[Rfam]
RNA sequence: AAAUCCGGUGACGUAGUCAAAUAUCAGCUGGUAAUUCUGGGAUUCUUAAGCUAGCCCAGGAUUCUGGUUGGUAUCCGGCUGCGAACUGGU
Numbered sequence: 001a002a003a004u005c006c007g008g009u010g011a012c013g014u015a016g017u018c019a020a021a022u023a024u025c026a027g028c029u030g031g032u033a034a035u036u037c038u039g040g041g042a043u044u045c046u047u048a049a050g051c052u053a054g055c056c057c058a059g060g061a062u063u064c065u066g067g068u069u070g071g072u073a074u075c076c077g078g079c080u081g082c083g084a085a086c087u088g089g090u
Stems, first nucleotide, its partner, number of pairs: 013082006021074011034062008
RNA: mir-283 microRNA precursor family
Organism: Dolichomitus sp. PSUC_FEM 10030005